A member of the RNA family "pemK RNA", 75 nucleotides long.

[Rfam]
RNA sequence: AUAAUGAUACUUCGACUUGGCUUAGCAUUGGCUGAGAAGUCGCUCGGUGGAAACGGAGAGGUGAAAUUCCUAUGU
Numbered sequence: 001a002u003a004a005u006g007a008u009a010c011u012u013c014g015a016c017u018u019g020g021c022u023u024a025g026c027a028u029u030g031g032c033u034g035a036g037a038a039g040u041c042g043c044u045c046g047g048u049g050g051a052a053a054c055g056g057a058g059a060g061g062u063g064a065a066a067u068u069c070c071u072a073u074g075u
Base pairs, nucleotide, nucleotide: 012072013042014041015040016039017038018037043058044057045056047054048053059071060070061069